Rfam assigns this 225-nucleotide sequence from Geodia barretti to the family "Group II catalytic intron D1-D4-6". Group II introns are found in rRNA, tRNA and mRNA of organelles in fungi, plants and protists, and also in mRNA in bacteria. Pairs were carried over by alignment from the consensus structure.
RNA sequence: GGAGUCCGGCAGGAGGAAGAAGGCCAGCCACCACCUCCACCCCGAGUCAUGGGCCGUCAUCCGUGAGGCUGACGGUUAAGCGUUGACAGGGGCGCGGGCGGGCGGGGCGAUUGAGCACCGAAAAGGCAGAAAGUUCGGGAUGCCGAGGCUCUUGUUUUGGCUGAAGGCAGUAUCCGACUCACCGAUAUGGCGAGGGGGGUCGGAAUCCCGCGGUGUCGAAGAACC
Dot-bracket structure: ...........(((((.....((...[[..)).))))).((((..((((((((((((((.((....)).))))))))...)).)))).))))...................((.((((((...............(((((((((..((((........))))...)))....((((((((.((......]]..)).))))))))))))))))))))).)......